[Rfam]
RNA sequence: GAGAUAUGAUGAAAUAUACUUUGGUCCGUGUUUCUGACUUAACCGUGACCGAUAAACCCUUACCAUUAUCUGAUCUC
Numbered sequence: 001g002a003g004a005u006a007u008g009a010u011g012a013a014a015u016a017u018a019c020u021u022u023g024g025u026c027c028g029u030g031u032u033u034c035u036g037a038c039u040u041a042a043c044c045g046u047g048a049c050c051g052a053u054a055a056a057c058c059c060u061u062a063c064c065a066u067u068a069u070c071u072g073a074u075c076u077c
Base pairs, nucleotide, nucleotide: 001077002076003075004074

This 77-nucleotide RNA sequence from Corchorus capsularis belongs to the Rfam family "Small nucleolar RNA SNORD18". The base pairs follow the family's consensus structure, which was predicted with PFOLD. The family is grouped with related families in Rfam's "SNORD18 clan". The family's RNA type in Rfam is C/D-box small nucleolar RNA. For this family Rfam cites "Two different snoRNAs are encoded in introns of amphibian and human L1 ribosomal protein genes" (Prislei et al., Nucleic Acids Res, 1993).